[Rfam]
RNA sequence: GCGCUGUCCUGGCACUUUUGACCUUCGAUACGGAUCGAAGGUUGUGUCAGGGAAGCACGGUAGGGAAACAUGCGUCGCAGCCGUCUGCUACGCAGCACAUUAACUACC
Numbered sequence: 001g002c003g004c005u006g007u008c009c010u011g012g013c014a015c016u017u018u019u020g021a022c023c024u025u026c027g028a029u030a031c032g033g034a035u036c037g038a039a040g041g042u043u044g045u046g047u048c049a050g051g052g053a054a055g056c057a058c059g060g061u062a063g064g065g066a067a068a069c070a071u072g073c074g075u076c077g078c079a080g081c082c083g084u085c086u087g088c089u090a091c092g093c094a095g096c097a098c099a100u101u102a103a104c105u106a107c108c
Stems, first nucleotide, its partner, number of pairs: 001058001003056002009050007020043010059108005071094005077088003
RNA: Hairpin ribozyme 1 from viruses-like metatranscriptomes